[Rfam]
RNA sequence: CCGCUACAAAAUAACCGAUUCUGUAGCCACUUUGAGUUAUGAUAAUUACUAUGUUAAUUUAUGAAAUUAUAGUAACUCCUUGCUAAGUGGUUUACUAUAAUGUUAUGGUAAAUAUCCCCAUGUGUUAUAAUAACCCAACUAUGGUAAAUAUGUAUUGACAUUAUCGUAAAUUAGUAUAUAAAAUUAUCGUAAAUGGAGGUGACUACAGAAUAAUUUAUUUUGUAGUUG
Numbered sequence: 001c002c003g004c005u006a007c008a009a010a011a012u013a014a015c016c017g018a019u020u021c022u023g024u025a026g027c028c029a030c031u032u033u034g035a036g037u038u039a040u041g042a043u044a045a046u047u048a049c050u051a052u053g054u055u056a057a058u059u060u061a062u063g064a065a066a067u068u069a070u071a072g073u074a075a076c077u078c079c080u081u082g083c084u085a086a087g088u089g090g091u092u093u094a095c096u097a098u099a100a101u102g103u104u105a106u107g108g109u110a111a112a113u114a115u116c117c118c119c120a121u122g123u124g125u126u127a128u129a130a131u132a133a134c135c136c137a138a139c140u141a142u143g144g145u146a147a148a149u150a151u152g153u154a155u156u157g158a159c160a161u162u163a164u165c166g167u168a169a170a171u172u173a174g175u176a177u178a179u180a181a182a183a184u185u186a187u188c189g190u191a192a193a194u195g196g197a198g199g200u201g202a203c204u205a206c207a208g209a210a211u212a213a214u215u216u217a218u219u220u221u222g223u224a225g226u227u228g
Base pairs, nucleotide, nucleotide: 001228003226004225005224006223007222008221009220010219011218012217013216014215018211019210020209021208022207023206024205025204026203028201029200030199031198032197033196037192038191039190040189041188042187043186044185045184046183047182050178051177052176053175054174055173056172057171058170059169060168061167062166066164067163069161070160074155080147081146082145083144087142088141089140090139091138092137093132094131096129097128098127099126100125101124102123103122107117108116